[Rfam]
RNA: Group II catalytic intron D1-D4-5
Organism: Christensenella minuta
RNA sequence: GAGAACUAAUAACUCAAUGGGUGGAAUGAAGGAGUAACGCCCUGAAACGCUCGCCUAAUACUCCGACUGGCGGUAUCAACUGCAAUUACGAUGCGGUCAGAGGCUCGGUGAAGUCGGCAGAGAGUGAUCGUAAAUUGGCUUGCCAAGACGAAAGCUGUCCAGAGGUGGAUGGUAUCACCUAUAUGCCGGGGUUCUAUAAA
Number, nucleotide and partner (000 for none) at each position: 001g000002a000003g000004a000005a000006c000007u000008a000009a000010u000011a000012a000013c000014u000015c000016a000017a000018u000019g052020g051021g050022u049023g048024g000025a000026a000027u000028g000029a000030a000031g043032g042033a000034g040035u000036a000037a000038c000039g000040c034041c000042c032043u031044g000045a000046a000047a000048c023049g022050c021051u020052c019053g192054c191055c190056u189057a000058a000059u000060a000061c000062u000063c108064c107065g106066a105067c100068u099069g098070g097071c096072g000073g094074u093075a092076u091077c090078a000079a000080c000081u000082g000083c000084a000085a000086u000087u000088a000089c000090g077091a076092u075093g074094c073095g000096g071097u070098c069099a068100g067101a000102g000103g000104c000105u066106c065107g064108g063109u000110g000111a000112a000113g000114u000115c188116g187117g186118c185119a184120g000121a000122g000123a000124g178125u177126g176127a175128u174129c150130g149131u148132a000133a000134a000135u000136u145137g144138g000139c000140u000141u000142g000143c000144c137145a136146a000147g000148a131149c130150g129151a000152a000153a000154g173155c172156u171157g170158u169159c168160c167161a166162g000163a000164g000165g000166u161167g160168g159169a158170u157171g156172g155173u154174a128175u127176c126177a125178c124179c000180u000181a000182u000183a000184u119185g118186c117187c116188g115189g056190g055191g054192u053193u000194c000195u000196a000197u000198a000199a000200a000